[Rfam]
RNA: PyrR binding site
RNA sequence: AAUUCCUUUAAUUUGGUCCAGAGAGGCCGAAAAGGGUUGAUAGACUGACACUUAAUUUUUGUCAUCUUAUAUUUUCAUGCCCUUUUGUCCUCUGUGACAGAAGGGCAUUAUUUUU
Numbered sequence: 001a002a003u004u005c006c007u008u009u010a011a012u013u014u015g016g017u018c019c020a021g022a023g024a025g026g027c028c029g030a031a032a033a034g035g036g037u038u039g040a041u042a043g044a045c046u047g048a049c050a051c052u053u054a055a056u057u058u059u060u061g062u063c064a065u066c067u068u069a070u071a072u073u074u075u076c077a078u079g080c081c082c083u084u085u086u087g088u089c090c091u092c093u094g095u096g097a098c099a100g101a102a103g104g105g106c107a108u109u110a111u112u113u114u115u
Stems, first nucleotide, its partner, number of pairs: 004036006013030006040070004046064005075110001077108012